[Rfam]
RNA: Alphaproteobacterial sRNA ar45
Organism: Pleomorphomonas diazotrophica
RNA sequence: GCCCAAUUUCGCACGUGCCUGUGGUUGCGUGCCGGUUUCGCUAGGGCCGCUAACGGCGGUUCCGGCGAGGGCAACCGGUGACCGGAGUUAAACCGGGUCUAAGCCGCUUCUCAAGCGGCGGACGCGACUUAAAGCAACGACGUAGAGGGCUUUU
Numbered sequence: 001g002c003c004c005a006a007u008u009u010c011g012c013a014c015g016u017g018c019c020u021g022u023g024g025u026u027g028c029g030u031g032c033c034g035g036u037u038u039c040g041c042u043a044g045g046g047c048c049g050c051u052a053a054c055g056g057c058g059g060u061u062c063c064g065g066c067g068a069g070g071g072c073a074a075c076c077g078g079u080g081a082c083c084g085g086a087g088u089u090a091a092a093c094c095g096g097g098u099c100u101a102a103g104c105c106g107c108u109u110c111u112c113a114a115g116c117g118g119c120g121g122a123c124g125c126g127a128c129u130u131a132a133a134g135c136a137a138c139g140a141c142g143u144a145g146a147g148g149g150c151u152u153u154u
Stems, first nucleotide, its partner, number of pairs: 001150004009140003016136003023129008031079005037071003083103001086100002104121004